[Rfam]
RNA: Small nucleolar RNA snoR138
RNA sequence: CUUGCCUCCACAUAACCGAAUGGUGGUUUGCAAAGCUGUUUGGUUCUGACAGAGGCAAAGAUUUAAAAGGAAUAUCCAAUGACCAAAACAGUUUGAGGGUGAGGAGUGGUUUCUUACUUCUUCAUUCCUUUCCUGGUAGUUUUGGAUAUCU
Numbered sequence: 001c002u003u004g005c006c007u008c009c010a011c012a013u014a015a016c017c018g019a020a021u022g023g024u025g026g027u028u029u030g031c032a033a034a035g036c037u038g039u040u041u042g043g044u045u046c047u048g049a050c051a052g053a054g055g056c057a058a059a060g061a062u063u064u065a066a067a068a069g070g071a072a073u074a075u076c077c078a079a080u081g082a083c084c085a086a087a088a089c090a091g092u093u094u095g096a097g098g099g100u101g102a103g104g105a106g107u108g109g110u111u112u113c114u115u116a117c118u119u120c121u122u123c124a125u126u127c128c129u130u131u132c133c134u135g136g137u138a139g140u141u142u143u144g145g146a147u148a149u150c151u
Base pairs, nucleotide, nucleotide: 003057004056005055006054007053008052014045015044016043017042018041019040020039021038023036024035084144085143086142087141088140089139091117092116095113096112097111099110102107127136128135